[Rfam]
RNA sequence: UGUUGAGUGAUGAUAAAAAUUCAUUCGGAUUCCCAUUGACAUAUUUAUGCAUGAGAUCACAGCCUAUUUCUGACAACA
Numbered sequence: 001u002g003u004u005g006a007g008u009g010a011u012g013a014u015a016a017a018a019a020u021u022c023a024u025u026c027g028g029a030u031u032c033c034c035a036u037u038g039a040c041a042u043a044u045u046u047a048u049g050c051a052u053g054a055g056a057u058c059a060c061a062g063c064c065u066a067u068u069u070c071u072g073a074c075a076a077c078a
Base pairs, nucleotide, nucleotide: 001078002077003076004075005074
The record is a 78-nucleotide RNA sequence from Lupinus angustifolius, which matches "Small nucleolar RNA R12" in Rfam.
The base pairs follow the family's consensus structure, which was predicted with PFOLD.
For this family Rfam cites "The high diversity of snoRNAs in plants: identification and comparative study of 120 snoRNA genes from Oryza sativa" (Chen et al., Nucleic Acids Res, 2003).
NCBI's taxonomy places the organism under Eukaryota, Euphyllophyta, Pentapetalae, Genisteae, Lupinus.
The family's RNA type in Rfam is C/D-box small nucleolar RNA.